Nucleotides: 382
Base pairs, nucleotide, nucleotide: 001378002377003376004375006373007372008371009370010369011367012331013330014329015328016327017326018325020057021056023054024053025052026051062365063364064363066362067361068360069359070358071237072236073235074234078268079267080266081265083233084232085231086230087229088102089101090100091099092098103117104115105114106113107112118228119227123226124225125222126221140167141166142163143162144161146159147158148157149156150155175193176192177191178190179189180188195217196215197214198213199212200211201210202209203208241288242287243286244285250279251278252277253276254275255274262270263269295314296313297312298311300309301308302307
Number, partner (000 for none) and nucleotide at each position: 001378u002377g003376g004375g005000c006373c007372g008371g009370c010369c011367a012331g013330a014329c015328g016327g017326u018325c019000g020057c021056g022000u023054c024053g025052a026051g027000u028000g029000c030000a031000c032000g033000c034000c035000c036000c037000u038000c039000c040000g041000g042000g043000g044000g045000a046000a047000c048000g049000g050000c051026c052025u053024c054023g055000c056021c057020g058000a059000g060000g061000a062365a063364c064363g065000u066362c067361c068360g069359g070358g071237c072236u073235c074234c075000g076000u077000a078268g079267a080266g081265c082000a083233g084232g085231g086230c087229g088102g089101u090100g091099g092098g093000u094000a095000a096000c097000a098092c099091c100090c101089a102088c103117c104115c105114g106113c107112a108000g109000c110000a111000a112107u113106g114105c115104g116000c117103g118228a119227g120000a121000a122000a123226g124225u125222g126221c127000a128000a129000c130000a131000g132000a133000g134000a135000g136000c137000a138000g139000a140167c141166c142163g143162c144161c145000u146159c147158c148157g149156g150155c151000u152000u153000c154000g155150g156149c157148c158147g159146g160000c161144g162143g163142u164000a165000a166141g167140g168000g169000u170000g171000a172000a173000a174000c175193g176192g177191u178190g179189g180188u181000g182000u183000a184000a185000g186000a187000g188180a189179c190178c191177a192176c193175c194000a195217g196215g197214g198213g199212c200211c201210c202209g203208a204000g205000u206000g207000a208203u209202c210201g211200g212199g213198c214197u215196c216000g217195c218000u219000g220000g221126g222125u223000a224000a225124a226123c227119c228118u229087c230086g231085c232084c233083c234074g235073g236072a237071g238000c239000a240000a241288g242287g243286u244285c245000a246000g247000a248000c249000a250279g251278g252277c253276a254275c255274c256000g257000u258000u259000g260000a261000c262270g263269c264000u265081g266080c267079u268078c269263g270262c271000c272000g273000a274255g275254g276253u277252g278251c279250c280000g281000g282000g283000u284000a285244g286243a287242c288241c289000g290000c291000u292000a293000g294000a295314g296313g297312g298311c299000u300309g301308c302307g303000g304000c305000a306000a307302c308301g309300u310000c311298g312297u313296c314295c315000c316000g317000a318000g319000a320000g321000a322000g323000a324000u325018g326017g327016c328015c329014g330013u331012c332000g333000a334000a335000c336000g337000g338000g339000a340000g341000u342000g343000a344000u345000c346000c347000c348000g349000g350000g351000a352000a353000c354000a355000g356000a357000a358070c359069c360068c361067g362066g363064c364063g365062u366000a367011u368000c369010g370009g371008c372007c373006g374000a375004c376003c377002c378001a379000c380000u381000u382000g